[Rfam]
RNA sequence: GGACGUACCUCUGGAGAGACCAAUGAUGGCGCCGAAGGGGCAAGGCCGAAAAGGCUGAAAUCUCUCAGGCAAAAGGACAGAGUAUAUCAA
Numbered sequence: 001g002g003a004c005g006u007a008c009c010u011c012u013g014g015a016g017a018g019a020c021c022a023a024u025g026a027u028g029g030c031g032c033c034g035a036a037g038g039g040g041c042a043a044g045g046c047c048g049a050a051a052a053g054g055c056u057g058a059a060a061u062c063u064c065u066c067a068g069g070c071a072a073a074a075g076g077a078c079a080g081a082g083u084a085u086a087u088c089a090a
Base pairs, nucleotide, nucleotide: 009082010081011080012079013078020029021028022027031070032069033068034066035065038064039063040062045056
Shown here is a 90-nucleotide sequence from Clostridium thermosuccinogenes, a member of the family "Glycine riboswitch aptamer".
Its family is annotated with glycine biosynthetic process in the Gene Ontology.